The family of this 89-nucleotide RNA sequence from Prunus yedoensis is "Small nucleolar RNA U54". The family is grouped with related families in Rfam's "U54 clan". U54 is a C/D box small nucleolar RNA, which acts as a methylation guide for 18S ribosomal RNA in plants. Pairs were carried over by alignment from the consensus structure, which was predicted with PFOLD. It is annotated as a C/D-box small nucleolar RNA.
RNA sequence: UGCUCUGUGAUUACCUGCCUGAAAAUGGCAAUAUACGCUAUUCCGAUUAUUACAUGACCGGAGAAACUUCUAAAGAAUGUAUGAGAGUU
Number, nucleotide and partner (000 for none) at each position: 001u000002g088003c087004u086005c085006u000007g000008u000009g000010a000011u000012u000013a000014c000015c000016u000017g000018c000019c000020u000021g000022a000023a000024a000025a000026u000027g000028g000029c000030a000031a000032u000033a000034u000035a000036c000037g000038c000039u000040a000041u000042u000043c000044c000045g000046a000047u000048u000049a000050u000051u000052a000053c000054a000055u000056g000057a000058c000059c000060g000061g000062a000063g000064a000065a000066a000067c000068u000069u000070c000071u000072a000073a000074a000075g000076a000077a000078u000079g000080u000081a000082u000083g000084a000085g005086a004087g003088u002089u000